[Rfam]
RNA sequence: AUUCAUCCACCACCCGUACACGGCAGGAGCGGGGGACCCACAGGUACAACCGCCUGUUCCGGUCUCAGGAACGGCUUGGGGUAAAGCCGCGUCACGGCGCGGCCGGGCAUCUCCAGCCCGCACCCGACAGCUCACCUCGCAGGCGCCGGAGAGGAAUUCG
Numbered sequence: 001a002u003u004c005a006u007c008c009a010c011c012a013c014c015c016g017u018a019c020a021c022g023g024c025a026g027g028a029g030c031g032g033g034g035g036a037c038c039c040a041c042a043g044g045u046a047c048a049a050c051c052g053c054c055u056g057u058u059c060c061g062g063u064c065u066c067a068g069g070a071a072c073g074g075c076u077u078g079g080g081g082u083a084a085a086g087c088c089g090c091g092u093c094a095c096g097g098c099g100c101g102g103c104c105g106g107g108c109a110u111c112u113c114c115a116g117c118c119c120g121c122a123c124c125c126g127a128c129a130g131c132u133c134a135c136c137u138c139g140c141a142g143g144c145g146c147c148g149g150a151g152a153g154g155a156a157u158u159c160g
Base pairs, nucleotide, nucleotide: 002028003027004026029140030139031138032137033136034135039078040077079125080124081123087102088101089100090099105119106118107117108116
A member of the RNA family "c-di-AMP riboswitch aptamer (ydaO/yuaA leader)" from Streptomyces griseicoloratus, 160 nucleotides long.
From the family's description: This family represents a conserved RNA structure found upstream of the ydaO and yuaA genes in Bacillus subtilis and related genes in other bacteria.
Taxonomically the source falls in Streptomyces (Bacteria, Bacillati, Actinomycetota, Kitasatosporales).
Rfam links the family to the GO terms regulation of gene expression and cyclic-di-AMP binding.